[Rfam]
RNA sequence: UCUUUCCUUGUCUGGGGGUGGAUGGACCGAUCCAUGAGCGUGUAGCGAGAUCAGUCCUGCUAACACCUAACCAACACAACCAGCAUCACCUGAACUCUGUUGUUCAGGCUAUGGUGCAAUUUUUGGAACC
Numbered sequence: 001u002c003u004u005u006c007c008u009u010g011u012c013u014g015g016g017g018g019u020g021g022a023u024g025g026a027c028c029g030a031u032c033c034a035u036g037a038g039c040g041u042g043u044a045g046c047g048a049g050a051u052c053a054g055u056c057c058u059g060c061u062a063a064c065a066c067c068u069a070a071c072c073a074a075c076a077c078a079a080c081c082a083g084c085a086u087c088a089c090c091u092g093a094a095c096u097c098u099g100u101u102g103u104u105c106a107g108g109c110u111a112u113g114g115u116g117c118a119a120u121u122u123u124u125g126g127a128a129c130c
Stems, first nucleotide, its partner, number of pairs: 006018004021060001024057001026055002029052004038046002083117006089108006
Dot-bracket structure: .....((((.....))))..(..(.((.((((.....((.....))..)))).)).)..)......................((((((((((((........))))))...)))))).............

U4atac minor spliceosomal RNA: a 130-nucleotide sequence from Triplophysa tibetana. Lineage of the source: Eukaryota > Chordata > Craniata > Neopterygii > Triplophysa. The base pairs follow the family's consensus structure, which is taken from published work. Rfam's curators write: U4atac is an essential component of the minor U12-type spliceosome complex which is required for removal of the rarer class of eukaryotic introns (AT-AC, U12-type). Clan: U4 clan.